A member of the RNA family "Selenocysteine transfer RNA" from a Pirellulaceae bacterium, 96 nucleotides long. Pairs were carried over by alignment from the consensus structure, which is taken from published work. The source organism's lineage runs through Bacteria, Pseudomonadati, Planctomycetota, Planctomycetia and Pirellulaceae. The match comes from Rfam's covariance-model search (67 bits).
Nucleotides: 096
Stems, first nucleotide, its partner, number of pairs: 001096008014025004030044004048070005073087004
Number, partner (000 for none) and nucleotide at each position: 001096g002095g003094a004093a005092g006091u007090g008089c009000u010000u011000g012000u013000a014025c015024g016023c017022c018000u019000g020000g021000u022017g023016g024015c025014g026000g027000c028000c029000u030044c031043a032042g033041u034000c035000u036000u037000c038000a039000a040000a041033a042032c043031u044030g045000c046000u047000g048070g049069g050068c051067c052066u053000u054000g055000c056000g057000u058000u059000a060000a061000c062000c063000g064000u065000u066052g067051g068050g069049c070048c071000g072000g073087u074086g075085g076084g077000u078000u079000c080000g081000a082000u083000u084076c085075c086074c087073a088000u089008g090007c091006a092005c093004u094003u095002c096001c